[Rfam]
RNA sequence: GGUGUGCUCCGGGGUCGGUGUAAUUCCGAGCCGGCGGUUAAAGUCCGCGAGCCGCUUCGGCGGUUGAGCUGGUGAAACUCCAGCACCGACGGUUAAAGUCCGGAUGGGAGGAGCUCGCU
Numbered sequence: 001g002g003u004g005u006g007c008u009c010c011g012g013g014g015u016c017g018g019u020g021u022a023a024u025u026c027c028g029a030g031c032c033g034g035c036g037g038u039u040a041a042a043g044u045c046c047g048c049g050a051g052c053c054g055c056u057u058c059g060g061c062g063g064u065u066g067a068g069c070u071g072g073u074g075a076a077a078c079u080c081c082a083g084c085a086c087c088g089a090c091g092g093u094u095a096a097a098g099u100c101c102g103g104a105u106g107g108g109a110g111g112a113g114c115u116c117g118c119u
Stems, first nucleotide, its partner, number of pairs: 003117002006114005016028003030099002032088002034048004043086002051064003068084005090102003